[Rfam]
RNA sequence: CACUCAUCACGAGGGGUAGAGGGACACGGCCCGACGAAACCCCAGCAACCAGCUCGACUGAGCCAGGUGCUCCUUCCGUCCCGGGCGAGAGUCGACCCGGGAAAGAUGACCC
Numbered sequence: 001c002a003c004u005c006a007u008c009a010c011g012a013g014g015g016g017u018a019g020a021g022g023g024a025c026a027c028g029g030c031c032c033g034a035c036g037a038a039a040c041c042c043c044a045g046c047a048a049c050c051a052g053c054u055c056g057a058c059u060g061a062g063c064c065a066g067g068u069g070c071u072c073c074u075u076c077c078g079u080c081c082c083g084g085g086c087g088a089g090a091g092u093c094g095a096c097c098c099g100g101g102a103a104a105g106a107u108g109a110c111c112c
Stems, first nucleotide, its partner, number of pairs: 004109005013043005021032003026079004044071004049067002052063004075104001080101006
Shown here is a 112-nucleotide RNA from Aeromicrobium terrae, a member of the family "SAM riboswitch aptamer (S box leader)". Its Rfam clan is "SAM clan".